This 87-nucleotide RNA from Cnephaeus nilssonii belongs to the Rfam family "mir-9195 microRNA precursor family". A search with the family's covariance model found it, with a score of 92 bits. Lineage of the source: Eukaryota > Chordata > Dipnotetrapodomorpha > Mammalia > Cnephaeus. Gene Ontology terms of the family: RISC complex and miRNA-mediated post-transcriptional gene silencing.

[Rfam]
RNA sequence: AGAGGCCCUCUGCGGCCAGGGCGGGACACUUGCCUCGUUGCUGCAGCAAUGAAGCAAGCAUUCCACCAGGCCGCUCACACUGCCUGC
Numbered sequence: 001a002g003a004g005g006c007c008c009u010c011u012g013c014g015g016c017c018a019g020g021g022c023g024g025g026a027c028a029c030u031u032g033c034c035u036c037g038u039u040g041c042u043g044c045a046g047c048a049a050u051g052a053a054g055c056a057a058g059c060a061u062u063c064c065a066c067c068a069g070g071c072c073g074c075u076c077a078c079a080c081u082g083c084c085u086g087c
Base pairs, nucleotide, nucleotide: 004084005083006082012074013073014072015071016070017069020067021066023064024063025062026061029058030057031056032055033054037050038049039048040047041046